Annotation:
Rfam assigns this 67-nucleotide RNA from Chrysochloris asiatica to the family "MAT2A 3'UTR stem loop E". The source organism's lineage runs through Eukaryota, Craniata, Tetrapoda, Chrysochlorinae and Chrysochloris.
[Rfam]
RNA sequence: UUAGCAUUUCUAGGUAGGUUAGCAUGACCUACAGAAAAACCCUGUGUUAGACCUACAGGAGGUCUAC
Numbered sequence: 001u002u003a004g005c006a007u008u009u010c011u012a013g014g015u016a017g018g019u020u021a022g023c024a025u026g027a028c029c030u031a032c033a034g035a036a037a038a039a040c041c042c043u044g045u046g047u048u049a050g051a052c053c054u055a056c057a058g059g060a061g062g063u064c065u066a067c
Base pairs, nucleotide, nucleotide: 002066003065004064006063007062008061009060010059011058014056015055016054017053018052020044021043022042025039026032
About this RNA
The match comes from Rfam's covariance-model search (50 bits). Pairs were carried over by alignment from the consensus structure, which is taken from published work.